[Rfam]
RNA sequence: GCGAGGGUAGCUCAGUCGGCAGAGCACACGGCUGAUAACCGUGAGGUCCCGAGUUCGAAUCUCGGCUCUCGCA
Numbered sequence: 001g002c003g004a005g006g007g008u009a010g011c012u013c014a015g016u017c018g019g020c021a022g023a024g025c026a027c028a029c030g031g032c033u034g035a036u037a038a039c040c041g042u043g044a045g046g047u048c049c050c051g052a053g054u055u056c057g058a059a060u061c062u063c064g065g066c067u068c069u070c071g072c073a
Base pairs, nucleotide, nucleotide: 001072002071003070004069005068006067007066010025011024012023013022027043028042029041030040031039049065050064051063052062053061